[Rfam]
RNA sequence: UCUCGGGGGAGAGUCCCACCAGCGCGGCGUCCCAAUACGGUCGCCACGACCGUCGCGCUGGGCCAAUGGCGAGACCGACCCUUCCGAGA
Numbered sequence: 001u002c003u004c005g006g007g008g009g010a011g012a013g014u015c016c017c018a019c020c021a022g023c024g025c026g027g028c029g030u031c032c033c034a035a036u037a038c039g040g041u042c043g044c045c046a047c048g049a050c051c052g053u054c055g056c057g058c059u060g061g062g063c064c065a066a067u068g069g070c071g072a073g074a075c076c077g078a079c080c081c082u083u084c085c086g087a088g089a
Stems, first nucleotide, its partner, number of pairs: 001089009011079001013064001015062001022058008039076002041072005
Source information: The record is an 89-nucleotide RNA, which matches "c-di-GMP-II-GAG riboswitch aptamer" in Rfam. Its family is annotated with regulation of gene expression and cyclic-di-GMP binding in the Gene Ontology. The sequence is in the family's curated seed alignment. The family's consensus secondary structure is taken from published work.